[Rfam]
The record is a 69-nucleotide sequence from Nitrosomonas sp. Nm58, which matches "int-alpA RNA" in Rfam.

RNA sequence: ACUGCGCCUAGCCCGACGGGGCGAACACCGGGAACCCUUACCCGGUUGGCGUGGUUUCUGAUUUAAGGG
Number, nucleotide and partner (000 for none) at each position: 001a055002c054003u053004g052005c051006g050007c049008c048009u000010a000011g022012c021013c020014c019015g000016a000017c000018g000019g014020g013021g012022c011023g000024a000025a000026c000027a000028c045029c044030g043031g042032g041033a000034a000035c069036c068037c067038u066039u065040a064041c032042c031043c030044g029045g028046u000047u000048g008049g007050c006051g005052u004053g003054g002055u001056u000057u000058c000059u000060g000061a000062u000063u000064u040065a039066a038067g037068g036069g035

The source organism's lineage runs through Bacteria, Pseudomonadati, Nitrosomonadales, Nitrosomonadaceae and Nitrosomonas. A search with the family's covariance model found it, with a score of 67 bits. The family's consensus secondary structure is taken from published work.